Source information
The record is a 77-nucleotide RNA sequence from Phaedon cochleariae, which matches "mir-190 microRNA precursor family" in Rfam. The base pairs follow the family's consensus structure, which was predicted with RNAalifold. The family has 76 seed sequences and 1,667 matches in Rfam 15.1. Rfam links the family to the GO terms miRNA-mediated post-transcriptional gene silencing and RISC complex. The source organism's lineage runs through Eukaryota, Pancrustacea, Allotriocarida, Insecta and Phaedon. A search with the family's covariance model found it, with a score of 72 bits.
[Rfam]
RNA sequence: AUUCCUGUGAGAUAUGUUUGAUAUUCUUGGUUGUCGAUUCGAAAACACCCAGGAGUCAAACAUAUUAUUACAGUGGU
Numbered sequence: 001a002u003u004c005c006u007g008u009g010a011g012a013u014a015u016g017u018u019u020g021a022u023a024u025u026c027u028u029g030g031u032u033g034u035c036g037a038u039u040c041g042a043a044a045a046c047a048c049c050c051a052g053g054a055g056u057c058a059a060a061c062a063u064a065u066u067a068u069u070a071c072a073g074u075g076g077u
Stems, first nucleotide, its partner, number of pairs: 005073005011066012024053002029050002032047002